[Rfam]
RNA: Small nucleolar RNA SNORD22
RNA sequence: CUCCAGAAAAGGAAUGUUCACACACCUUACUUCCUGUCCUAGUCCCAAGCCCAAAAAGAUGGACUUACUGGGGCUGGCUGUGGUGGAAUAAGAAAGUCUGCUCCAGAAGGAGCUACCUGAGGGGU
Numbered sequence: 001c002u003c004c005a006g007a008a009a010a011g012g013a014a015u016g017u018u019c020a021c022a023c024a025c026c027u028u029a030c031u032u033c034c035u036g037u038c039c040u041a042g043u044c045c046c047a048a049g050c051c052c053a054a055a056a057a058g059a060u061g062g063a064c065u066u067a068c069u070g071g072g073g074c075u076g077g078c079u080g081u082g083g084u085g086g087a088a089u090a091a092g093a094a095a096g097u098c099u100g101c102u103c104c105a106g107a108a109g110g111a112g113c114u115a116c117c118u119g120a121g122g123g124g125u
Stems, first nucleotide, its partner, number of pairs: 001124004